RNA sequence: CCACGUCCCGACGCAAUCCCCCCCCGGCGCCGGGACCUUCCCAGGGCCGGGCUUCGGCGCCUACCCCCCCCAGGCGCCGGAGCCCGGCCUUUUC
Dot-bracket structure: ....((((((.(((............))).)))))).......((((((((((.((((((((.........)))))))).))))))))))....
RNA: Streptomyces RNA 3202
Organism: Streptomyces cellostaticus